Plant signal recognition particle RNA: a 305-nucleotide RNA sequence from Ricinus communis.
Its Rfam clan is "SRP clan".
NCBI's taxonomy places the organism under Eukaryota, Viridiplantae, Euphyllophyta, Acalypheae, Ricinus.
On this family, see Regalia et al., Nucleic Acids Res 2002: "Prediction of signal recognition particle RNA genes".
The base pairs follow the family's consensus structure, which is taken from published work.
RNA sequence: ACCGGGCUCAGUAACUCGAGCUUGUAACCCAAGUGGGGGUGUUAAGGUGAUGGAACAUUGGGCUAGCCCACGCAGUCGGAUUGUUAAUGGCUAUUGCCUGGCCUGUCCGUUCCAAGCCGUGAGUGAGUGGUGCGGUUUAGGCGGAGGCCUGGGCCGCUCUGUUCCUAAAGCUGGAGGGUACCGCGUCAGGCUGGCUUCACAGAGCAGCGACAACCUCCCUCUCACGGCGGUGGAAGGAUAACGGGCUGGUGCCGUUGCAGUCCAAUAUGGCCCGGUGGGUUGGCCCUAAUCGAACUAUCACUUUU
Numbered sequence: 001a002c003c004g005g006g007c008u009c010a011g012u013a014a015c016u017c018g019a020g021c022u023u024g025u026a027a028c029c030c031a032a033g034u035g036g037g038g039g040u041g042u043u044a045a046g047g048u049g050a051u052g053g054a055a056c057a058u059u060g061g062g063c064u065a066g067c068c069c070a071c072g073c074a075g076u077c078g079g080a081u082u083g084u085u086a087a088u089g090g091c092u093a094u095u096g097c098c099u100g101g102c103c104u105g106u107c108c109g110u111u112c113c114a115a116g117c118c119g120u121g122a123g124u125g126a127g128u129g130g131u132g133c134g135g136u137u138u139a140g141g142c143g144g145a146g147g148c149c150u151g152g153g154c155c156g157c158u159c160u161g162u163u164c165c166u167a168a169a170g171c172u173g174g175a176g177g178g179u180a181c182c183g184c185g186u187c188a189g190g191c192u193g194g195c196u197u198c199a200c201a202g203a204g205c206a207g208c209g210a211c212a213a214c215c216u217c218c219c220u221c222u223c224a225c226g227g228c229g230g231u232g233g234a235a236g237g238a239u240a241a242c243g244g245g246c247u248g249g250u251g252c253c254g255u256u257g258c259a260g261u262c263c264a265a266u267a268u269g270g271c272c273c274g275g276u277g278g279g280u281u282g283g284c285c286c287u288a289a290u291c292g293a294a295c296u297a298u299c300a301c302u303u304u305u
Stems, first nucleotide, its partner, number of pairs: 001040003004023006011016001028037003044304010056292001058289003061285006068278004075271003078263007086255001088254003092251002098249009107237002110235005116228008125164006132157011165170001173218005184209003191202003